[Rfam]
RNA sequence: UACAUGAAACUGCCGAAUUCCCCGCACCCGGGAAACGGGGGAACCACAUCAGUCAGGGUGAAUUGAUCCCGCUUCAAAGGGAUCAUAGGGAGCCUUCAACCGAAUCCUUAAGCUAACCUCGCAGGCCUUGGAAGGAGUUAGA
Numbered sequence: 001u002a003c004a005u006g007a008a009a010c011u012g013c014c015g016a017a018u019u020c021c022c023c024g025c026a027c028c029c030g031g032g033a034a035a036c037g038g039g040g041g042a043a044c045c046a047c048a049u050c051a052g053u054c055a056g057g058g059u060g061a062a063u064u065g066a067u068c069c070c071g072c073u074u075c076a077a078a079g080g081g082a083u084c085a086u087a088g089g090g091a092g093c094c095u096u097c098a099a100c101c102g103a104a105u106c107c108u109u110a111a112g113c114u115a116a117c118c119u120c121g122c123a124g125g126c127c128u129u130g131g132a133a134g135g136a137g138u139u140a141g142a
Stems, first nucleotide, its partner, number of pairs: 012126003018034005036121005056107003064085007088101002
c-di-AMP riboswitch aptamer (ydaO/yuaA leader): a 142-nucleotide RNA sequence from Paenibacillus macerans. A search with the family's covariance model found it, with a score of 62 bits. Lineage of the source: Bacteria > Bacillati > Bacillota > Bacilli > Paenibacillus.